[Rfam]
Shown here is a 372-nucleotide sequence from Futiania mangrovi, a member of the family "Alphaproteobacteria transfer-messenger RNA". The match comes from Rfam's covariance-model search (275 bits). The family's RNA type in Rfam is non-coding RNA gene.

Nucleotides: 372
Stems, first nucleotide, its partner, number of pairs: 040055005059203005069196002072193004084182002088179003094110005111164007204219004209230003213227003336352004342369006
Number, partner (000 for none) and nucleotide at each position: 001000c002000c003000u004000c005000u006000u007000c008000a009000a010000c011000u012000g013000g014000c015000g016000g017000c018000c019000g020000a021000u022000c023000c024000c025000g026000c027000c028000u029000a030000u031000a032000u033000a034000g035000g036000g037000u038000g039000u040055g041054c042053c043052g044051g045000a046000g047000g048000c049000a050000u051044c052043c053042g054041g055040c056000u057000a058000u059203g060202g061201c062200g063199a064000u065000a066000a067000a068000c069196g070195g071000g072193g073192c074191g075190u076000g077000g078000a079000a080000u081000a082000a083000g084182c085181g086000g087000a088179c089178c090177g091000g092000a093000c094110c095109c096108g097107g098106g099000g100000g101000c102000a103000g104000u105000a106098c107097c108096c109095g110094g111164c112163g113162c114161c115160u116159c117158c118000a119000c120000c121000a122000c123000a124000a125000g126000c127000c128000c129000g130000c131000g132000a133000a134000c135000g136000u137000g138000u139000u140000g141000c142000u143000u144000c145000g146000c147000g148000g149000g150000c151000u152000u153000c154000u155000g156000a157000u158117g159116g160115g161114g162113g163112c164111g165000a166000a167000c168000c169000a170000g171000g172000a173000u174000c175000g176000a177090c178089g179088g180000a181085c182084g183000u184000g185000u186000a187000a188000a189000g190075a191074c192073g193072c194000a195070u196069c197000u198000u199063u200062c201061g202060c203059c204219c205218g206217g207216c208000a209230u210229g211228g212000u213227u214226c215225c216207g217206c218205c219204g220000u221000u222000a223000u224000c225215g226214g227213g228211c229210c230209g231000u232000a233000a234000g235000c236000a237000c238000a239000g240000u241000u242000g243000c244000g245000a246000a247000u248000g249000a250000c251000a252000a253000c254000a255000a256000u257000c258000g259000u260000g261000c262000a263000c264000g265000g266000a267000u268000g269000g270000c271000g272000a273000u274000g275000g276000c277000u278000g279000c280000g281000u282000a283000a284000u285000g286000c287000a288000g289000c290000c291000g292000g293000a294000g295000u296000g297000a298000u299000c300000c301000a302000c303000u304000c305000c306000u307000a308000a309000a310000g311000u312000c313000c314000a315000c316000g317000g318000c319000u320000u321000g322000c323000a324000c325000a326000a327000g328000c329000c330000g331000u332000g333000g334000c335000g336352g337351g338350g339349u340000c341000c342369g343368g344367a345366g346365g347364g348000c349339g350338c351337c352336u353000g354000g355000c356000a357000a358000c359000a360000g361000a362000a363000g364347c365346c366345c367344u368343c369342c370000a371000c372000u